The family of this 94-nucleotide RNA sequence from Caenorhabditis angaria is "Small nucleolar RNA sn2903".
The family is grouped with related families in Rfam's "SNORD60 clan".
The literature on the family includes a 2006 paper in Nucleic Acids Res by Zemann et al., "Evolution of small nucleolar RNAs in nematodes".
[Rfam]
RNA sequence: GAGCGAUGACGAAUGCACACAUUUGCUUCUGACACCUCUUAUGUUAGUGGUAAAUUUCCGUUACCACGGUGAGUCCAACAGGAUCUCUGAGCUC
Numbered sequence: 001g002a003g004c005g006a007u008g009a010c011g012a013a014u015g016c017a018c019a020c021a022u023u024u025g026c027u028u029c030u031g032a033c034a035c036c037u038c039u040u041a042u043g044u045u046a047g048u049g050g051u052a053a054a055u056u057u058c059c060g061u062u063a064c065c066a067c068g069g070u071g072a073g074u075c076c077a078a079c080a081g082g083a084u085c086u087c088u089g090a091g092c093u094c
Stems, first nucleotide, its partner, number of pairs: 001094004
Dot-bracket structure: ((((......................................................................................))))

Background:
Taxonomically the source falls in Caenorhabditis (Eukaryota, Protostomia, Nematoda, Rhabditomorpha). Rfam links the family to the GO terms RNA processing and nucleolus. By type it is a C/D-box small nucleolar RNA. A search with the family's covariance model found it, with a score of 87 bits.